RNA: Clostridiales-1 RNA
Organism: Butyrivibrio sp. INlla14
Nucleotides: 163
Stems, first nucleotide, its partner, number of pairs: 001163007010063001013058001016055013029040004067126004072121003077116004085109007128155007139145002
Number, partner (000 for none) and nucleotide at each position: 001163u002162g003161a004160u005159a006158u007157a008000g009000g010063g011000a012000a013058u014000g015000a016055a017054a018053a019052u020051a021050u022049a023048u024047a025046g026045u027044g028043c029040u030039g031038u032037g033000c034000u035000u036000g037032c038031a039030c040029a041000u042000g043028g044027c045026a046025c047024u048023a049022u050021a051020u052019a053018u054017u055016u056000g057000a058013a059000a060000u061000g062000a063010c064000c065000g066000a067126a068125c069124a070123u071000a072121c073120a074119u075000g076000a077116g078115g079114a080113a081000u082000a083000a084000a085109g086108a087107a088106a089105u090104g091103c092000g093000a094000a095000u096000g097000a098000a099000a100000u101000g102000a103091g104090c105089a106088u107087u108086u109085c110000g111000a112000g113080u114079u115078c116077c117000g118000a119074a120073u121072g122000g123070a124069u125068g126067u127000a128155g129154g130153a131152u132151u133150g134149c135000g136000a137000g138000a139145a140144c141000g142000a143000a144140g145139u146000g147000g148000a149134g150133c151132a152131a153130u154129c155128c156000g157007u158006a159005u160004a161003u162002c163001a